Rfam assigns this 66-nucleotide RNA sequence from Tenacibaculum piscium to the family "S15-Flavobacteria ribosomal protein leader".
The source organism's lineage runs through Bacteria, Bacteroidota, Flavobacteriia, Flavobacteriaceae and Tenacibaculum.
Rfam classes the family as a cis-regulatory leader.
Its Rfam clan is "Ribosomal Protein S15 Leader clan".
For this family Rfam cites "Discovery of 20 novel ribosomal leader candidates in bacteria and archaea" (Eckert and Weinberg, BMC Microbiol, 2020).
RNA sequence: UAUCUUUGUAGCUUCAAUGAAUAGCUCAUUGAUGUACAUAAAAAUCAUUUAAAUAAUAUUGGAAUG
Dot-bracket structure: .............((((((.......))))))..................................